[Rfam]
RNA sequence: ACGAUGUUCCGCUGUCCCAUAGCGAGAUAAGAGCAUUGG
Dot-bracket structure: ..(((((((...((((.(.....).)))).)))))))..
RNA: Ribosomal protein L19 leader